[Rfam]
RNA sequence: GGCGUUUCUCGGAUGACGCACGCCGGAAUCGGGCUCCCUCCUCUCUGGUUCAGGGGGCAUCACCCGAGAACCGCA
Numbered sequence: 001g002g003c004g005u006u007u008c009u010c011g012g013a014u015g016a017c018g019c020a021c022g023c024c025g026g027a028a029u030c031g032g033g034c035u036c037c038c039u040c041c042u043c044u045c046u047g048g049u050u051c052a053g054g055g056g057g058c059a060u061c062a063c064c065c066g067a068g069a070a071c072c073g074c075a
Base pairs, nucleotide, nucleotide: 002074003073006070007069008068009067010066011065012064014062015061016060019057021055023053026051027050028049029048030047031046032045033044
The family of this 75-nucleotide sequence from Myotis myotis is "mir-9223 microRNA precursor family". The organism belongs to Myotis, within Eukaryota. Pairs were carried over by alignment from the consensus structure, which was predicted with RNAalifold.